[Rfam]
RNA sequence: CUUGCACCCAAACCCCAAAAGAUCUUUGUUUUUCCUUAACAAUGAUCUUUUCUUGGGUGCAAACAUCAAAAGAACCUUGUCGCCUUUCUGGAGCUGAUAAAAGUGCCCCAGAAAGUGAAAUAGUGGGUUCUACAUUC
Numbered sequence: 001c002u003u004g005c006a007c008c009c010a011a012a013c014c015c016c017a018a019a020a021g022a023u024c025u026u027u028g029u030u031u032u033u034c035c036u037u038a039a040c041a042a043u044g045a046u047c048u049u050u051u052c053u054u055g056g057g058u059g060c061a062a063a064c065a066u067c068a069a070a071a072g073a074a075c076c077u078u079g080u081c082g083c084c085u086u087u088c089u090g091g092a093g094c095u096g097a098u099a100a101a102a103g104u105g106c107c108c109c110a111g112a113a114a115g116u117g118a119a120a121u122a123g124u125g126g127g128u129u130c131u132a133c134a135u136u137c
Stems, first nucleotide, its partner, number of pairs: 002062008021047004026042005072130006084115008093106002
The record is a 137-nucleotide RNA from Monodelphis domestica, which matches "Small nucleolar RNA SNORA68" in Rfam. The source organism's lineage runs through Eukaryota, Bilateria, Gnathostomata, Theria and Monodelphis. About the family: U68 is a member of the H/ACA class of small nucleolar RNAs (snoRNAs) which act as guides in the the modification of uridines to pseudouridines. For this family Rfam cites "The family of box ACA small nucleolar RNAs is defined by an evolutionarily conserved secondary structure and ubiquitous sequence elements essential for RNA accumulation" (Ganot et al., Genes Dev, 1997).